[Rfam]
RNA sequence: UAUUGCAGCUAUUACGGUAAUUUGGAUUGGAAGGGCGUCUAGCCUGGAAACGGGCUAGAUGAUGACUGGGUGAAUUGCUGGGAAGCCCUAAAGCCUUCCUUGCCACAACGAAGCUGGAAACGGCAGGCGUGAAGGUGCAAAAAAAGGAAGGAUGCAACAAUGGGCAAUCAGCAGCCAAGCUCCUGUCUCGAAAGAGUGGAGAAGGUUCAACGACUAGGGCGUACCACCUAAGGCCAUUGGCUAUGGUGAUGAGGUCCGUAGGGGAGGCGGAUGCCGAACCGAAGUGCCCGGCCCCUCACUAGCGAUUAGCUGGCGGGUGAAGAGAUAGUCUACACAACGGUCGAAAGACGUUG
Numbered sequence: 001u002a003u004u005g006c007a008g009c010u011a012u013u014a015c016g017g018u019a020a021u022u023u024g025g026a027u028u029g030g031a032a033g034g035g036c037g038u039c040u041a042g043c044c045u046g047g048a049a050a051c052g053g054g055c056u057a058g059a060u061g062a063u064g065a066c067u068g069g070g071u072g073a074a075u076u077g078c079u080g081g082g083a084a085g086c087c088c089u090a091a092a093g094c095c096u097u098c099c100u101u102g103c104c105a106c107a108a109c110g111a112a113g114c115u116g117g118a119a120a121c122g123g124c125a126g127g128c129g130u131g132a133a134g135g136u137g138c139a140a141a142a143a144a145a146g147g148a149a150g151g152a153u154g155c156a157a158c159a160a161u162g163g164g165c166a167a168u169c170a171g172c173a174g175c176c177a178a179g180c181u182c183c184u185g186u187c188u189c190g191a192a193a194g195a196g197u198g199g200a201g202a203a204g205g206u207u208c209a210a211c212g213a214c215u216a217g218g219g220c221g222u223a224c225c226a227c228c229u230a231a232g233g234c235c236a237u238u239g240g241c242u243a244u245g246g247u248g249a250u251g252a253g254g255u256c257c258g259u260a261g262g263g264g265a266g267g268c269g270g271a272u273g274c275c276g277a278a279c280c281g282a283a284g285u286g287c288c289c290g291g292c293c294c295c296u297c298a299c300u301a302g303c304g305a306u307u308a309g310c311u312g313g314c315g316g317g318u319g320a321a322g323a324g325a326u327a328g329u330c331u332a333c334a335c336a337a338c339g340g341u342c343g344a345a346a347g348a349c350g351u352u353g
Stems, first nucleotide, its partner, number of pairs: 001034001003032002043054003066291004071286002076173006086164003174206002181199002187194002210331001212330005295317003299313005337351002340349003
RNA: Group I catalytic intron